RNA sequence: GGUGUUUCGACGCCUGGAGGGUGAGAAUCCCCGAUGGGUUCGAGUCGAGCGCCGCGAGACAACGUUGCCACAGGCAACGGCCCGCAGGGCGAGGCGAAGCCGAGUCAUCCCUCCGGGCGCGCCA
Numbered sequence: 001g002g003u004g005u006u007u008c009g010a011c012g013c014c015u016g017g018a019g020g021g022u023g024a025g026a027a028u029c030c031c032c033g034a035u036g037g038g039u040u041c042g043a044g045u046c047g048a049g050c051g052c053c054g055c056g057a058g059a060c061a062a063c064g065u066u067g068c069c070a071c072a073g074g075c076a077a078c079g080g081c082c083c084g085c086a087g088g089g090c091g092a093g094g095c096g097a098a099g100c101c102g103a104g105u106c107a108u109c110c111c112u113c114c115g116g117g118c119g120c121g122c123c124a
Stems, first nucleotide, its partner, number of pairs: 015115007022107001032091002039086001041084002046056002063079006

The record is a 124-nucleotide sequence from Marinobacterium lacunae, which matches "RtT RNA" in Rfam.
The match comes from Rfam's covariance-model search (88 bits).
A reference for the family is Bosl and Kersten (1991), "A novel RNA product of the tyrT operon of Escherichia coli", Nucleic Acids Res.
Rfam classes the family as a cis-regulatory element.
Gene Ontology term of the family: cellular response to amino acid starvation.
Rfam describes the family as follows. This family represents a bacterial cis-regulatory element known as RtT RNA. The exact function of RtT is unknown although it is thought that it may be involved in changing the cellular response in relation to amino acid starvation.